This 61-nucleotide sequence belongs to the Rfam family "eL15-Euryarchaeota ribosomal protein leader". It is annotated as a cis-regulatory leader. The base pairs follow the family's consensus structure, which is taken from published work.

[Rfam]
RNA sequence: CCUGUUCGACGUCUCGUCACAGGUACGGAAUGUGGACCGCUCUCGUGGUCUGAACCGGGAA
Number, nucleotide and partner (000 for none) at each position: 001c023002c022003u021004g020005u019006u000007c000008g000009a000010c000011g000012u000013c000014u000015c000016g000017u000018c000019a005020c004021a003022g002023g001024u000025a000026c057027g056028g055029a000030a000031u000032g000033u000034g051035g050036a049037c048038c047039g000040c000041u000042c000043u000044c000045g000046u000047g038048g037049u036050c035051u034052g000053a000054a000055c028056c027057g026058g000059g000060a000061a000